[Rfam]
RNA: FMN riboswitch aptamer (RFN element)
RNA sequence: AUACGUUCUCAGGGCGGGGCGAAAUUCCCCUCCGGCGGUAAUGGCACGCAAUGUGUCUAGCCCGCGAGCGCUUGUUGUGAGGCCGGUAGUUUGGCUUCACUAGCGAGGUCAGCAGACUCGGUGUGAUUCCGAGGCCGACGGUUAUAGUCCGGAUAAAGAGAGAGCGGGA
Numbered sequence: 001a002u003a004c005g006u007u008c009u010c011a012g013g014g015c016g017g018g019g020c021g022a023a024a025u026u027c028c029c030c031u032c033c034g035g036c037g038g039u040a041a042u043g044g045c046a047c048g049c050a051a052u053g054u055g056u057c058u059a060g061c062c063c064g065c066g067a068g069c070g071c072u073u074g075u076u077g078u079g080a081g082g083c084c085g086g087u088a089g090u091u092u093g094g095c096u097u098c099a100c101u102a103g104c105g106a107g108g109u110c111a112g113c114a115g116a117c118u119c120g121g122u123g124u125g126a127u128u129c130c131g132a133g134g135c136c137g138a139c140g141g142u143u144a145u146a147g148u149c150c151g152g153a154u155a156a157a158g159a160g161a162g163a164g165c166g167g168g169a
Base pairs, nucleotide, nucleotide: 004166005165006164007163008162009161010160017029018028019027032147033137034136035065036064037063038062060135061134068113069112117133118132119131120130121129139151140150141149